[Rfam]
RNA sequence: GCACCUGAUCUUUCCCAUUCCUUGCUGCCUAGUGCAGGCCUGGGGACACAUGGUGCUUACAAAAAAGCAGAGUAAAUCCAGAUGGGUGUGUUUGCAUUCACUGAAUACCUGUCCCUACAGCUCUGCAACAGUU
Numbered sequence: 001g002c003a004c005c006u007g008a009u010c011u012u013u014c015c016c017a018u019u020c021c022u023u024g025c026u027g028c029c030u031a032g033u034g035c036a037g038g039c040c041u042g043g044g045g046a047c048a049c050a051u052g053g054u055g056c057u058u059a060c061a062a063a064a065a066a067g068c069a070g071a072g073u074a075a076a077u078c079c080a081g082a083u084g085g086g087u088g089u090g091u092u093u094g095c096a097u098u099c100a101c102u103g104a105a106u107a108c109c110u111g112u113c114c115c116u117a118c119a120g121c122u123c124u125g126c127a128a129c130a131g132u133u
Base pairs, nucleotide, nucleotide: 001056002055003054004053005052012046013045014044015043016042017041020038021037067126068125069124070123071122072121081113082112083111084110085109086108087107093105095103

A member of the RNA family "Small nucleolar RNA SNORA55" from Eudromia elegans, 133 nucleotides long. Rfam 15.1 lists 1,476 matches to the family in 616 species. Rfam describes the family as follows. ACA55 is a member of the H/ACA class of snoRNA that guide the sites of modification of uridines to pseudouridines.